RNA sequence: CUGGCCCCGGUUCACGUACGAGCAGUCCGCGCGUGCGACCCGGAGCC
Numbered sequence: 001c002u003g004g005c006c007c008c009g010g011u012u013c014a015c016g017u018a019c020g021a022g023c024a025g026u027c028c029g030c031g032c033g034u035g036c037g038a039c040c041c042g043g044a045g046c047c
Stems, first nucleotide, its partner, number of pairs: 003047003007043004015037006022030002
RNA: L31-Actinobacteria ribosomal protein leader